About this RNA:
The record is a 119-nucleotide RNA from Phyllostomus discolor, which matches "Small nucleolar RNA SNORA26" in Rfam. The snoRNA HBI-6 belong to the H/ACA family of snoRNAs, guiding the pseudouridylation of position U4522 if the 28S rRNA. HBI-6 is the human orthologue of mouse MBI-6 snoRNA. It is annotated as an H/ACA-box small nucleolar RNA. Clan: SNORA27 clan. Taxonomically the source falls in Phyllostomus (Eukaryota, Metazoa, Vertebrata, Mammalia).

RNA sequence: GUGUCCUUGUAAGGUUGCCACAGUGCCUUGAGAGGGUAACACAGAGGGUAAAGUCUCCAUAACUCCCAGAAAAGAGAUUGUCUAAAACUCCUCUUUGGAUUAUUUCUGGAGUCACUGCU
Numbered sequence: 001g002u003g004u005c006c007u008u009g010u011a012a013g014g015u016u017g018c019c020a021c022a023g024u025g026c027c028u029u030g031a032g033a034g035g036g037u038a039a040c041a042c043a044g045a046g047g048g049u050a051a052a053g054u055c056u057c058c059a060u061a062a063c064u065c066c067c068a069g070a071a072a073a074g075a076g077a078u079u080g081u082c083u084a085a086a087a088c089u090c091c092u093c094u095u096u097g098g099a100u101u102a103u104u105u106c107u108g109g110a111g112u113c114a115c116u117g118c119u
Base pairs, nucleotide, nucleotide: 002050003049004048005047006046008045010043014040015039016038017037019035021032053113055111056110057109058108059107066098067097068096069095070094072092074090075089076088078087079086
Dot-bracket structure: .(((((.(.(...((((.(.(..........)..).))))..).))))))..(.(((((......(((((.(.(((.((......))))).).)))))........))))).)......